This 167-nucleotide sequence from Streptomyces mexicanus belongs to the Rfam family "Streptomyces-metH RNA".
RNA sequence: AUCGUCCGGGUGAUGGACGCCCUGACCAUCGGGUGCCGGUCCCGGCUACUCUGGCGGCGUGCGCCCUCCCCGGGAAGCCGUCGGACCGCUCCGCCGCGAGCCGUCCCCAGCGGAGCGGGGAAGGCGCAAAGCCGACAGCCGUCGCACCUCCAGGGAGCCCUUUCAUG
Numbered sequence: 001a002u003c004g005u006c007c008g009g010g011u012g013a014u015g016g017a018c019g020c021c022c023u024g025a026c027c028a029u030c031g032g033g034u035g036c037c038g039g040u041c042c043c044g045g046c047u048a049c050u051c052u053g054g055c056g057g058c059g060u061g062c063g064c065c066c067u068c069c070c071c072g073g074g075a076a077g078c079c080g081u082c083g084g085a086c087c088g089c090u091c092c093g094c095c096g097c098g099a100g101c102c103g104u105c106c107c108c109a110g111c112g113g114a115g116c117g118g119g120g121a122a123g124g125c126g127c128a129a130a131g132c133c134g135a136c137a138g139c140c141g142u143c144g145c146a147c148c149u150c151c152a153g154g155g156a157g158c159c160c161u162u163u164c165a166u167g
Stems, first nucleotide, its partner, number of pairs: 060128004065123001067121006131145002134143003